[Rfam]
RNA: Guanidine-II riboswitch aptamer (mini-ykkC)
RNA sequence: AAGUGAGGACGACCUCACCGCUCCACCCUUGAUCGGGGACGACCCCA
Number, nucleotide and partner (000 for none) at each position: 001a000002a000003g018004u017005g016006a015007g014008g013009a000010c000011g000012a000013c008014c007015u006016c005017a004018c003019c000020g000021c000022u000023c000024c000025a000026c000027c000028c000029u000030u000031g000032a000033u000034c000035g046036g045037g044038g043039a000040c000041g000042a000043c038044c037045c036046c035047a000